[Rfam]
RNA sequence: AUCGCUUCUCGAGCUUUUUAGCUCAGAUCAAAGUGUAGUAUCUGUUCUUAUCAGCUUAAUCUCUGGUACAACCAUCAUUGAUGGUUUUGAGAUUAGAUGAUUUUUGGGACCUGAGUGUUUGUUGGGGCUUGCCUCUCACCGUUCACUGGUCGGCCCGGUCUUGCACCUAUCUCCGGGAACGGCCUAAAAUUA
Numbered sequence: 001a002u003c004g005c006u007u008c009u010c011g012a013g014c015u016u017u018u019u020a021g022c023u024c025a026g027a028u029c030a031a032a033g034u035g036u037a038g039u040a041u042c043u044g045u046u047c048u049u050a051u052c053a054g055c056u057u058a059a060u061c062u063c064u065g066g067u068a069c070a071a072c073c074a075u076c077a078u079u080g081a082u083g084g085u086u087u088u089g090a091g092a093u094u095a096g097a098u099g100a101u102u103u104u105u106g107g108g109a110c111c112u113g114a115g116u117g118u119u120u121g122u123u124g125g126g127g128c129u130u131g132c133c134u135c136u137c138a139c140c141g142u143u144c145a146c147u148g149g150u151c152g153g154c155c156c157g158g159u160c161u162u163g164c165a166c167c168u169a170u171c172u173c174c175g176g177g178a179a180c181g182g183c184c185u186a187a188a189a190u191u192a
Stems, first nucleotide, its partner, number of pairs: 007027003012023004049068006070086007113144005119138001124135004148184005154177005
RNA: U2 spliceosomal RNA